RNA sequence: ACUGGCAUAAUGAUGAAAUAAUGAUUUGCCGUUUACCCAUCUGACUGGUUAUUGAUGUGUAUCUUUUUGAAUCUGAAAUGCCAGU
Numbered sequence: 001a002c003u004g005g006c007a008u009a010a011u012g013a014u015g016a017a018a019u020a021a022u023g024a025u026u027u028g029c030c031g032u033u034u035a036c037c038c039a040u041c042u043g044a045c046u047g048g049u050u051a052u053u054g055a056u057g058u059g060u061a062u063c064u065u066u067u068u069g070a071a072u073c074u075g076a077a078a079u080g081c082c083a084g085u
Base pairs, nucleotide, nucleotide: 001085002084003083004082005081006080007079

A member of the RNA family "Small nucleolar RNA SNORD87" from Cairina moschata, 85 nucleotides long. For this family Rfam cites "U87 RNA, a novel C/D box small nucleolar RNA from mammalian cells" (Gogolevskaya et al., Gene, 2002). The family's RNA type in Rfam is C/D-box small nucleolar RNA. The match comes from Rfam's covariance-model search (57 bits). Gene Ontology terms of the family: RNA processing and nucleolus.